[Rfam]
RNA sequence: CCUAUGGAGUAUUAUACCAAACUUGAGUAGGUUUUUACGAAAAAGGAUACAGUGAAGUAGGAA
Dot-bracket structure: (((((...(((((........(((.....(.......)....))))))))......)))))..
Rfam assigns this 63-nucleotide RNA sequence to the family "RAGATH-18 RNA". It is one of the family's seed sequences. Rfam's curators write: Actinobacteria, Firmicutes, Fusobacteria, Thermotogae (1 example). The base pairs follow the family's consensus structure, which is taken from published work.